[Rfam]
RNA sequence: AUAACAUUUGGGCCGUCGGUCUACCGAGCAAGUUCAGCCGCUUCGUCGAAGUUCUUCCCUUUGUCAA
Numbered sequence: 001a002u003a004a005c006a007u008u009u010g011g012g013c014c015g016u017c018g019g020u021c022u023a024c025c026g027a028g029c030a031a032g033u034u035c036a037g038c039c040g041c042u043u044c045g046u047c048g049a050a051g052u053u054c055u056u057c058c059c060u061u062u063g064u065c066a067a
Stems, first nucleotide, its partner, number of pairs: 004064003010058003015053001017051001020049002023046002026043004
RNA: mir-2774 microRNA precursor family